[Rfam]
Eukaryotic large subunit ribosomal RNA: a 292-nucleotide part of an RNA from Fasciolopsis buskii.
RNA sequence: AAGUCGGCAAAUUGGAUCCGUAACUUCGGGAAAAGGAUUGGCUCUGAGGGCCGAGUCAAACGGGCUGAAGUAAGAUACGUGUCGGUCAAGUUGGAGGCUGGUUUCUCUGUUGCCUUGUCUGCUUCGGUGGAUAGGGUUGACGGAGUUACUGGACUCUGACCGGAUCGGUCGUGGGCGACUUCAGCUAACAGUGUUGCUUGGCAAGCGGCGUGUAUGGGCAACUGUGUGCGCAAUGUGGUCUCGCUCACUUUGUUUGGCGUUCAGCGGCUGACUCAGAACUGGCACGGACCUG
Numbered sequence: 001a002a003g004u005c006g007g008c009a010a011a012u013u014g015g016a017u018c019c020g021u022a023a024c025u026u027c028g029g030g031a032a033a034a035g036g037a038u039u040g041g042c043u044c045u046g047a048g049g050g051c052c053g054a055g056u057c058a059a060a061c062g063g064g065c066u067g068a069a070g071u072a073a074g075a076u077a078c079g080u081g082u083c084g085g086u087c088a089a090g091u092u093g094g095a096g097g098c099u100g101g102u103u104u105c106u107c108u109g110u111u112g113c114c115u116u117g118u119c120u121g122c123u124u125c126g127g128u129g130g131a132u133a134g135g136g137u138u139g140a141c142g143g144a145g146u147u148a149c150u151g152g153a154c155u156c157u158g159a160c161c162g163g164a165u166c167g168g169u170c171g172u173g174g175g176c177g178a179c180u181u182c183a184g185c186u187a188a189c190a191g192u193g194u195u196g197c198u199u200g201g202c203a204a205g206c207g208g209c210g211u212g213u214a215u216g217g218g219c220a221a222c223u224g225u226g227u228g229c230g231c232a233a234u235g236u237g238g239u240c241u242c243g244c245u246c247a248c249u250u251u252g253u254u255u256g257g258c259g260u261u262c263a264g265c266g267g268c269u270g271a272c273u274c275a276g277a278a279c280u281g282g283c284a285c286g287g288a289c290c291u292g
Base pairs, nucleotide, nucleotide: 015039016038017037018036019035024029040280041279043277044276045275046274047273048272049269050268051267052266053265055258056257057256058255059254060253061252062251063250064185065184066183068181069180070179071178078173079172080171081170082168083167084166085165086164087163090160091159092158093157094156095155096154098152099151100150101149102148105145106144107143108142109141110140111139112138281285

It scores 2590 bits against the family's covariance model. Taxonomically the source falls in Fasciolopsis (Eukaryota, Opisthokonta, Eumetazoa, Lophotrochozoa).